Shown here is an 83-nucleotide RNA sequence from Microbacterium azadirachtae, a member of the family "ZMP/ZTP riboswitch aptamer (pfl RNA motif)". The match comes from Rfam's covariance-model search (52 bits).
RNA sequence: CGUCGAUGUCGCGACUGGCGUCUGGGUGGGUCACCACCGGGGAGCGACCGUCAUGGAUUCGACCGCGCGCCUGGGCCGAUGAG
Numbered sequence: 001c002g003u004c005g006a007u008g009u010c011g012c013g014a015c016u017g018g019c020g021u022c023u024g025g026g027u028g029g030g031u032c033a034c035c036a037c038c039g040g041g042g043a044g045c046g047a048c049c050g051u052c053a054u055g056g057a058u059u060c061g062a063c064c065g066c067g068c069g070c071c072u073g074g075g076c077c078g079a080u081g082a083g
Base pairs, nucleotide, nucleotide: 003053005051008048009047010046011045012044015041016040017071018070019069020068021067026037027036028035029034060078061077063075064074
Dot-bracket structure: ..(.(..(((((..(([[[[[....((((....))))..))..)))))..).)......((.((..]]]]]..)).)).....
Gene Ontology terms of the family: one-carbon metabolic process and regulation of purine nucleotide biosynthetic process.